[Rfam]
RNA sequence: CCCCGGGCUUGCGCCCGGGGCUACAUUCCGUCGCCCCUGCGGGGCU
Numbered sequence: 001c002c003c004c005g006g007g008c009u010u011g012c013g014c015c016c017g018g019g020g021c022u023a024c025a026u027u028c029c030g031u032c033g034c035c036c037c038u039g040c041g042g043g044g045c046u
Stems, first nucleotide, its partner, number of pairs: 001020008033045005
RNA: Acido-Lenti-1 RNA